[Rfam]
RNA sequence: GCACCUAAUCUUUCCCAUUCCUUGCUGCUCAGUGUGGGCCUGGGGACACAUGGUGCUUACAGAAAAGCAGAGUAAAUCCAGAUAGGUGUUUUUUCAUUGAAUACUUGUCUCUACACCUCUGCAACAGUU
Numbered sequence: 001g002c003a004c005c006u007a008a009u010c011u012u013u014c015c016c017a018u019u020c021c022u023u024g025c026u027g028c029u030c031a032g033u034g035u036g037g038g039c040c041u042g043g044g045g046a047c048a049c050a051u052g053g054u055g056c057u058u059a060c061a062g063a064a065a066a067g068c069a070g071a072g073u074a075a076a077u078c079c080a081g082a083u084a085g086g087u088g089u090u091u092u093u094u095c096a097u098u099g100a101a102u103a104c105u106u107g108u109c110u111c112u113a114c115a116c117c118u119c120u121g122c123a124a125c126a127g128u129u
Base pairs, nucleotide, nucleotide: 001056002055003054004053005052012046013045014044015043016042017041020038021037067122068121069120070119071118072117080110081109082108083107084106085105086104087103093101094100095099

Notes
The record is a 129-nucleotide sequence from Anseranas semipalmata, which matches "Small nucleolar RNA SNORA55" in Rfam. The family's consensus secondary structure was predicted with PFOLD. NCBI's taxonomy places the organism under Eukaryota, Craniata, Coelurosauria, Neognathae, Anseranas. The family has 29 seed sequences and 1,476 matches in Rfam 15.1. From the family's description: ACA55 is a member of the H/ACA class of snoRNA that guide the sites of modification of uridines to pseudouridines. The match comes from Rfam's covariance-model search (116 bits). By type it is an H/ACA-box small nucleolar RNA.